[Rfam]
RNA sequence: CGUCACGCCCGCUGUAAAAUGUAAUCAUCAGAGCGUCCUCUCAACCGCUUGGUGUUACUUCUUACAGUGAGUGCGACG
Numbered sequence: 001c002g003u004c005a006c007g008c009c010c011g012c013u014g015u016a017a018a019a020u021g022u023a024a025u026c027a028u029c030a031g032a033g034c035g036u037c038c039u040c041u042c043a044a045c046c047g048c049u050u051g052g053u054g055u056u057a058c059u060u061c062u063u064a065c066a067g068u069g070a071g072u073g074c075g076a077c078g
Base pairs, nucleotide, nucleotide: 006073007072008071010069011068012067013066015064016063017062026054027053028052029051030050032049033048034047
RNA: mir-971 microRNA precursor family